[Rfam]
RNA sequence: GGAACCCCCACAACACUCUGGCCCUUACUGUUCUCUCCCUGCGGGGUUUGAUCAUAUCAAAACGUGGUAUAGGCUUAUUUUAAGUGGGGAAGAUAAAACCAGUCCCAUUACUCACCGCGGUAUCCUUGGAGCUUGCUCCGUGGGUGCAGUGGUCCAUAUUUCGGGUCUACAU
Numbered sequence: 001g002g003a004a005c006c007c008c009c010a011c012a013a014c015a016c017u018c019u020g021g022c023c024c025u026u027a028c029u030g031u032u033c034u035c036u037c038c039c040u041g042c043g044g045g046g047u048u049u050g051a052u053c054a055u056a057u058c059a060a061a062a063c064g065u066g067g068u069a070u071a072g073g074c075u076u077a078u079u080u081u082a083a084g085u086g087g088g089g090a091a092g093a094u095a096a097a098a099c100c101a102g103u104c105c106c107a108u109u110a111c112u113c114a115c116c117g118c119g120g121u122a123u124c125c126u127u128g129g130a131g132c133u134u135g136c137u138c139c140g141u142g143g144g145u146g147c148a149g150u151g152g153u154c155c156a157u158a159u160u161u162c163g164g165g166u167c168u169a170c171a172u
Stems, first nucleotide, its partner, number of pairs: 007089003020075004026069006102167001104165002115152004120147003124144003
RNA: Small nucleolar RNA snR80